[Rfam]
RNA sequence: GCCGAGCCAGGUAGCGUUGGCUUGUAACCCAAGCGGGGGCACGUGAGGUUUGGGAUGGUCAAAGGAACAACAGAUGGGUUGGUUGCGAUCGUGUAGGAGCCUGGCCUGUCCGUUCCAAGUCAGGUAGCUGAACCACGCGGCCUGGGCGAAGGCUCGAGCCCCAUGAUUCUUAGAGCAGAGGACACCGCGUCAGGCUGGCUUCACAGAGCAACGAUAACCACUCGCUCUUGACGGUGGGAGGAUAACAGGUCGGCGCACAUCGCAUCCACCACGCCCGCCUCGCUCCUUAGACCAAACCACCACCUUU
Numbered sequence: 001g002c003c004g005a006g007c008c009a010g011g012u013a014g015c016g017u018u019g020g021c022u023u024g025u026a027a028c029c030c031a032a033g034c035g036g037g038g039g040c041a042c043g044u045g046a047g048g049u050u051u052g053g054g055a056u057g058g059u060c061a062a063a064g065g066a067a068c069a070a071c072a073g074a075u076g077g078g079u080u081g082g083u084u085g086c087g088a089u090c091g092u093g094u095a096g097g098a099g100c101c102u103g104g105c106c107u108g109u110c111c112g113u114u115c116c117a118a119g120u121c122a123g124g125u126a127g128c129u130g131a132a133c134c135a136c137g138c139g140g141c142c143u144g145g146g147c148g149a150a151g152g153c154u155c156g157a158g159c160c161c162c163a164u165g166a167u168u169c170u171u172a173g174a175g176c177a178g179a180g181g182a183c184a185c186c187g188c189g190u191c192a193g194g195c196u197g198g199c200u201u202c203a204c205a206g207a208g209c210a211a212c213g214a215u216a217a218c219c220a221c222u223c224g225c226u227c228u229u230g231a232c233g234g235u236g237g238g239a240g241g242a243u244a245a246c247a248g249g250u251c252g253g254c255g256c257a258c259a260u261c262g263c264a265u266c267c268a269c270c271a272c273g274c275c276c277g278c279c280u281c282g283c284u285c286c287u288u289a290g291a292c293c294a295a296a297c298c299a300c301c302a303c304c305u306u307u
Stems, first nucleotide, its partner, number of pairs: 001040003004023007028037003045306005051299003056294002059291002063287004068282001072280002075277005081267002084264006091258003096254001101253009110241002113239005119232006126226003130169003134165002137162001139160003143156005170175001177222002180219002188213003195206003

Notes
The family of this 307-nucleotide RNA sequence from Musa acuminata is "Plant signal recognition particle RNA".